[Rfam]
RNA sequence: UAAACCCUAUCAAGCCGAAGUCCCAAGUGCCACUUGGGAUACUAAGUAGGCGAGAUGGGGUUUA
Dot-bracket structure: (((((((((((..(((...(((((((((...)))))))))........)))..)))))))))))
This 64-nucleotide RNA sequence belongs to the Rfam family "DUF3800-VIII RNA". It is annotated as a small RNA. Bacteroidetes, Cyanobacteria, Firmicutes, Planctomycetes (1 example), Proteobacteria, Tenericutes (1 example).